A member of the RNA family "SAH (S-adenosyl-L-homocysteine) riboswitch aptamer" from Metapseudomonas resinovorans, 85 nucleotides long. The organism belongs to Metapseudomonas resinovorans, within Bacteria. Pairs were carried over by alignment from the consensus structure, which is taken from published work. It scores 68 bits against the family's covariance model. Its family is annotated with regulation of gene expression and S-adenosylhomocysteine metabolic process in the Gene Ontology.

[Rfam]
RNA sequence: CCAUUCGAGGGGCGCUGCAGCAAACCGGUGGUUUGUCAGGCUCGAAUGGGGCGUUAUCAAAACGCAUCAACGGCGCCCAUUCGCA
Numbered sequence: 001c002c003a004u005u006c007g008a009g010g011g012g013c014g015c016u017g018c019a020g021c022a023a024a025c026c027g028g029u030g031g032u033u034u035g036u037c038a039g040g041c042u043c044g045a046a047u048g049g050g051g052c053g054u055u056a057u058c059a060a061a062a063c064g065c066a067u068c069a070a071c072g073g074c075g076c077c078c079a080u081u082c083g084c085a
Stems, first nucleotide, its partner, number of pairs: 002048007021035006